[Rfam]
RNA sequence: AGAGGGGGCCUUUCAGGCAUCCUCUCCCAAACUUUUCAAGGCUGGCCUUCGGGCCGGCCUUUCUUUUUGCGCAAC
Numbered sequence: 001a002g003a004g005g006g007g008g009c010c011u012u013u014c015a016g017g018c019a020u021c022c023u024c025u026c027c028c029a030a031a032c033u034u035u036u037c038a039a040g041g042c043u044g045g046c047c048u049u050c051g052g053g054c055c056g057g058c059c060u061u062u063c064u065u066u067u068u069g070c071g072c073a074a075c
Stems, first nucleotide, its partner, number of pairs: 008018004039060009
Dot-bracket structure: .......((((...))))....................(((((((((....)))))))))...............

Makes More Granules Regulator RNA (mmgR): a 75-nucleotide RNA sequence from Novosphingobium aromaticivorans. By type it is a small RNA. Pairs were carried over by alignment from the consensus structure. The source organism's lineage runs through Bacteria, Sphingomonadales, Sphingomonadaceae, Novosphingobium and Novosphingobium aromaticivorans. Its Rfam clan is "suhB sRNA clan". Its family is annotated with response to nitrogen compound, DNA-templated transcription, termination and protein binding in the Gene Ontology.